[Rfam]
RNA sequence: GUUUAGGUUGGUGCAAAUCCAAUAACCUUAAUUUACAAUUUAAGAUGAGAAAGACUUUACCAUUGGUAACAAAUAGUUAAGUUACCCAUUAAGCGGAGAAAAUACUAUU
Numbered sequence: 001g002u003u004u005a006g007g008u009u010g011g012u013g014c015a016a017a018u019c020c021a022a023u024a025a026c027c028u029u030a031a032u033u034u035a036c037a038a039u040u041u042a043a044g045a046u047g048a049g050a051a052a053g054a055c056u057u058u059a060c061c062a063u064u065g066g067u068a069a070c071a072a073a074u075a076g077u078u079a080a081g082u083u084a085c086c087c088a089u090u091a092a093g094c095g096g097a098g099a100a101a102a103u104a105c106u107a108u109u
Stems, first nucleotide, its partner, number of pairs: 008022004058098001060096002062089002065086004069077002
RNA: Plastid-rps12 3UTR RNA